[Rfam]
RNA sequence: ACGACCUUACUUGAACAGGAUCUGUUCUAUAGGCCGUACCUCUGUGUUCUUGAUCUCUAAAGAGACAAGCCCUUAACCCUGGUUGAUGGUUCAUGGCCGUGCGAUUAGAGCGUGAUUAACUGCUGCGACCAUCGUAGGAUGUGUUCGGUGCUGUAGAGGAUCGUUACUCGGCUCGAUUCUAUCCUUGCCGGGGUGGUUGCGCGGCAGUCUGACAGGCU
Numbered sequence: 001a002c003g004a005c006c007u008u009a010c011u012u013g014a015a016c017a018g019g020a021u022c023u024g025u026u027c028u029a030u031a032g033g034c035c036g037u038a039c040c041u042c043u044g045u046g047u048u049c050u051u052g053a054u055c056u057c058u059a060a061a062g063a064g065a066c067a068a069g070c071c072c073u074u075a076a077c078c079c080u081g082g083u084u085g086a087u088g089g090u091u092c093a094u095g096g097c098c099g100u101g102c103g104a105u106u107a108g109a110g111c112g113u114g115a116u117u118a119a120c121u122g123c124u125g126c127g128a129c130c131a132u133c134g135u136a137g138g139a140u141g142u143g144u145u146c147g148g149u150g151c152u153g154u155a156g157a158g159g160a161u162c163g164u165u166a167c168u169c170g171g172c173u174c175g176a177u178u179c180u181a182u183c184c185u186u187g188c189c190g191g192g193g194u195g196g197u198u199g200c201g202c203g204g205c206a207g208u209c210u211g212a213c214a215g216g217c218u
Stems, first nucleotide, its partner, number of pairs: 001037002003034001005033003013027006043067003047063002050060003078216004096205012109165004119154002122151002126147003129143001130141004167192006175183002
RNA: Plant small nucleolar RNA U3